[Rfam]
This 123-nucleotide sequence from Flammeovirgaceae bacterium 311 belongs to the Rfam family "Group II catalytic intron D1-D4-2". Rfam 15.1 lists 1,231 matches to the family in 625 species. Group II introns are found in rRNA, tRNA and mRNA of organelles in fungi, plants and protists, and also in mRNA in bacteria. It scores 93 bits against the family's covariance model. Gene Ontology term of the family: Group II intron splicing. On this family, see Chu et al., EMBO J 2001: "Control of branch-site choice by a group II intron".
RNA sequence: GGAGGAUUGGACUUCCGCAGACGCCCGUCAGGGGGAGUCUGCAAACCACCUUAUGCUGCUGGAGGAGUAACUGCCUUUGGUGGUGAGCGAUAAGGAAAAGCAAGGGCAAAGAUUCUUGCAGGU
Numbered sequence: 001g002g003a004g005g006a007u008u009g010g011a012c013u014u015c016c017g018c019a020g021a022c023g024c025c026c027g028u029c030a031g032g033g034g035g036a037g038u039c040u041g042c043a044a045a046c047c048a049c050c051u052u053a054u055g056c057u058g059c060u061g062g063a064g065g066a067g068u069a070a071c072u073g074c075c076u077u078u079g080g081u082g083g084u085g086a087g088c089g090a091u092a093a094g095g096a097a098a099a100g101c102a103a104g105g106g107c108a109a110a111g112a113u114u115c116u117u118g119c120a121g122g123u
Stems, first nucleotide, its partner, number of pairs: 001016005017042006024035003047122001049095006055084002058081003062077004100119006